[Rfam]
RNA sequence: AACAGUUAUGGCGACAUGGUGCCGGCUACAAUAACAGGCAAAAUAGUUGGUGGCGUUUGCUCCCUGUCCGGUGUGCUGGUCAUCGCCCUCCCUGUGCCGGUCAUUGUGUCCAAC
Numbered sequence: 001a002a003c004a005g006u007u008a009u010g011g012c013g014a015c016a017u018g019g020u021g022c023c024g025g026c027u028a029c030a031a032u033a034a035c036a037g038g039c040a041a042a043a044u045a046g047u048u049g050g051u052g053g054c055g056u057u058u059g060c061u062c063c064c065u066g067u068c069c070g071g072u073g074u075g076c077u078g079g080u081c082a083u084c085g086c087c088c089u090c091c092c093u094g095u096g097c098c099g100g101u102c103a104u105u106g107u108g109u110c111c112a113a114c
Base pairs, nucleotide, nucleotide: 005110007108008107009106010105011104013102014101015100018097021095022094037077038076039075040074049063050062
Dot-bracket structure: ....(.(((((.(((..(..((..............((((........((...........))..........))))................)).)..))).))))).)....
The record is a 114-nucleotide RNA from Oppiella nova, which matches "Potassium channel RNA editing signal" in Rfam. The match comes from Rfam's covariance-model search (75 bits). Rfam links the family to the GO term adenosine to inosine editing.